[Rfam]
RNA sequence: GGGCAACUAUGAUGAAAGAUUUGGUCUCUAUGUAAUGCAUUUAGUUACUAAAUGAAGACAACAGUCCCUCUAAACUGAUGUUGCCA
Numbered sequence: 001g002g003g004c005a006a007c008u009a010u011g012a013u014g015a016a017a018g019a020u021u022u023g024g025u026c027u028c029u030a031u032g033u034a035a036u037g038c039a040u041u042u043a044g045u046u047a048c049u050a051a052a053u054g055a056a057g058a059c060a061a062c063a064g065u066c067c068c069u070c071u072a073a074a075c076u077g078a079u080g081u082u083g084c085c086a
Stems, first nucleotide, its partner, number of pairs: 002085006
RNA: Small nucleolar RNA SNORD127
Organism: Rhinolophus ferrumequinum